The record is a 54-nucleotide RNA sequence from Coregonus sp. 'balchen', which matches "UnaL2 LINE 3' element" in Rfam. Rfam classes the family as a cis-regulatory element. Pairs were carried over by alignment from the consensus structure, which is taken from published work. About the family: The eel long interspersed element (LINE) UnaL2 and its partner short interspersed element (SINE) share a conserved 3' tail containing a stem-loop that is critical for their retrotransposition. Presumably, the first step of retrotransposition is the recognition of their 3' tails by UnaL2-encoded reverse transcriptase. The solution structure of a 17-nucleotide RNA derived from the 3' tail of UnaL2 was determined by NMR. Gene Ontology term of the family: transposition, RNA-mediated.
Nucleotides: 054
Base pairs, nucleotide, nucleotide: 013043014041015040016039021035022034023033024032025031
Number, partner (000 for none) and nucleotide at each position: 001000u002000g003000c004000a005000c006000u007000c008000a009000c010000u011000a012000c013043u014041g015040u016039a017000a018000g019000u020000c021035g022034c023033u024032c025031u026000g027000g028000a029000u030000a031025a032024g033023a034022g035021u036000a037000u038000c039016u040015g041014c042000u043013a044000a045000a046000u047000a048000u049000g050000u051000a052000a053000u054000u